Small nucleolar RNA SNORA28: a 105-nucleotide RNA sequence from Myotis myotis. Rfam 15.1 lists 922 matches to the family in 535 species. The base pairs follow the family's consensus structure, which was predicted with RNAfold. From the family's description: ACA28 is a member of the H/ACA class of snoRNA that guide the sites of modification of uridines to pseudouridines. On this family, see Huttenhofer et al., EMBO J 2001: "RNomics: an experimental approach that identifies 201 candidates for novel, small, non-messenger RNAs in mouse". The family is grouped with related families in Rfam's "SNORA28 clan". Rfam classes the family as an H/ACA-box small nucleolar RNA. NCBI's taxonomy places the organism under Eukaryota, Chordata, Euteleostomi, Sarcopterygii, Myotis.
RNA sequence: AAGCAGUCAGGUAUUGCAUGUUUUAAAAAUUCUUUACAGCAACAAAGUCUAACCUAUUCCGGUGGUCUCCUCUAUGAGACAAACCGUUAUAUAGACUUAGACAGU
Dot-bracket structure: (.(((.........))).).........................(((((((...(((..((((..((((......))))...))))..)))))))))).......